RNA sequence: UUGUAGAUAUUUUUGUUAUGAAUGUAGUGCCAUCUUUCAGUACUAAAGUUAAACUAAAGCAUAUUUUAAUUAUCUAGGUAAGAAUAAU
Dot-bracket structure: ..........((((((..((.(((((((((.........))))))..((((...............))))))).)).)))))).....

The family of this 88-nucleotide RNA sequence from Phocoena sinus is "rpsL sRNA". On this family, see Meyer et al., BMC Genomics 2009: "Identification of candidate structured RNAs in the marine organism 'Candidatus Pelagibacter ubique'". The family's RNA type in Rfam is small RNA. NCBI's taxonomy places the organism under Eukaryota, Gnathostomata, Euteleostomi, Tetrapoda, Phocoena.